[Rfam]
RNA sequence: UGGGGUAACCCUGGCUAAGGAACUCGGCAAAAUGGCCCCGUAACUUCGGGAGAAGGGGUGCCCACGCUGGUGAAGGCCCUUAGCGGCUGGAGCUGGCGUGGGUUGCAGGGAAUCGGCGGUGGCGACUGUUUACCAAAAACACAGGACUCUGCGAAGUCGUAAGACGACGUAUAGGGUCUGACGCCUGCCCGGUGCCGGAAGGUGAAGGGUCCGGGUUAGGGGGCGUAGGCCUCCGAAGCUCGGACUUGAAGCCCCGGUAAACGGCGGCCGUAACUAUAACGGUCCUAAGGUAGCGAAAUUCCUUGUCGGGUAAGUUCCGACCUGCAUGAAUGGCGUAACGACUGCCGCACUGUCUCGGCCAGGGUCCCA
Dot-bracket structure: ((((....((((((((.(((..............(((((....(....).....)))))((((((..................((((....))))..))))))(...).......(((((((((..(((.........)))..(((((((((...(((....)))...)..))))))))..((((.(((..(((((((..(((...((.(((((((..((((((....))))))...))))))).))...))))))))..)))))((((((.......))))))(...).....(.........((((((.....))))))).........))))...)).)))))))....))).)))))))).))))
RNA: Bacterial large subunit ribosomal RNA, nucleotides 1755 to 2123
Organism: Thermodesulfatator indicus